[Rfam]
Notes: A member of the RNA family "Potassium channel RNA editing signal" from Sander lucioperca, 114 nucleotides long. This family represents a group of sequences related to the human potassium channel Kv1.1 hairpin element which directs the efficient modification of an adenosine to inosine by an adenosine deaminase acting on RNA (ADAR). The ADAR modification causes an isoleucine/valine recoding event which lies in the ion-conducting pore of the potassium channel. It is thought that this editing event targets the process of fast inactivation and allows a more rapid recovery from inactivation at negative potentials. The base pairs follow the family's consensus structure, which is taken from published work. It scores 109 bits against the family's covariance model. Taxonomically the source falls in Sander (Eukaryota, Craniata, Gnathostomata, Euteleostomi). It is annotated as a cis-regulatory element.
RNA sequence: GUGGGCUAUGGUGACAUGUACCCAGCGACAGUGUGGGGUAAGCUAGUGGGCUCAAUGUGCGCCAUUGCUGGUGUUCUCACCAUCUCGCUGCCAGUGCCUGUCAUAGUGUCCAAC
Numbered sequence: 001g002u003g004g005g006c007u008a009u010g011g012u013g014a015c016a017u018g019u020a021c022c023c024a025g026c027g028a029c030a031g032u033g034u035g036g037g038g039u040a041a042g043c044u045a046g047u048g049g050g051c052u053c054a055a056u057g058u059g060c061g062c063c064a065u066u067g068c069u070g071g072u073g074u075u076c077u078c079a080c081c082a083u084c085u086c087g088c089u090g091c092c093a094g095u096g097c098c099u100g101u102c103a104u105a106g107u108g109u110c111c112a113a114c
Stems, first nucleotide, its partner, number of pairs: 001114002004111002007108003011104001013102004018097004037077002040074001049063003